[Rfam]
RNA sequence: CACUCUGGAGAGUGGCGCAUCCGCGCCCGCCGAAGGGAUAGCGAUCUCAGGCACAAGGACAGAGGG
Numbered sequence: 001c002a003c004u005c006u007g008g009a010g011a012g013u014g015g016c017g018c019a020u021c022c023g024c025g026c027c028c029g030c031c032g033a034a035g036g037g038a039u040a041g042c043g044a045u046c047u048c049a050g051g052c053a054c055a056a057g058g059a060c061a062g063a064g065g066g
Stems, first nucleotide, its partner, number of pairs: 001066001003064005014027004029052003032048002036046002
Shown here is a 66-nucleotide RNA from Pseudooceanicola nitratireducens, a member of the family "Glycine riboswitch aptamer". Lineage of the source: Bacteria > Pseudomonadati > Pseudomonadota > Alphaproteobacteria > Pseudooceanicola. Pairs were carried over by alignment from the consensus structure. The match comes from Rfam's covariance-model search (42 bits).